[Rfam]
RNA sequence: CGGUCCGCCCCGUGGGACACCUGUGCUCAUGCAGCCCCCACCCGGUUACCCUGACCGGGUGCGGCCUCCCAGAGGACGCCGCGAAGCCGACAGCCGUCGCACUCCAGGGAGCACAUCCAUG
Numbered sequence: 001c002g003g004u005c006c007g008c009c010c011c012g013u014g015g016g017a018c019a020c021c022u023g024u025g026c027u028c029a030u031g032c033a034g035c036c037c038c039c040a041c042c043c044g045g046u047u048a049c050c051c052u053g054a055c056c057g058g059g060u061g062c063g064g065c066c067u068c069c070c071a072g073a074g075g076a077c078g079c080c081g082c083g084a085a086g087c088c089g090a091c092a093g094c095c096g097u098c099g100c101a102c103u104c105c106a107g108g109g110a111g112c113a114c115a116u117c118c119a120u121g
Stems, first nucleotide, its partner, number of pairs: 060083004067076002086100002089098003
Record summary
Streptomyces-metH RNA: a 121-nucleotide sequence from Streptomyces sp. ERV7. Pairs were carried over by alignment from the consensus structure, which is taken from published work. The family's RNA type in Rfam is small RNA.